[Rfam]
RNA: mir-130 microRNA precursor family
RNA sequence: UCCAAAUGAUACUUCUUCUAACAUUGCUGCACUGUUGGCAAUAGUUCAGCAAUGUUAGAAGAAGUAUCAUUUGGAA
Numbered sequence: 001u002c003c004a005a006a007u008g009a010u011a012c013u014u015c016u017u018c019u020a021a022c023a024u025u026g027c028u029g030c031a032c033u034g035u036u037g038g039c040a041a042u043a044g045u046u047c048a049g050c051a052a053u054g055u056u057a058g059a060a061g062a063a064g065u066a067u068c069a070u071u072u073g074g075a076a
Stems, first nucleotide, its partner, number of pairs: 001076001003074001005071006012064008022054008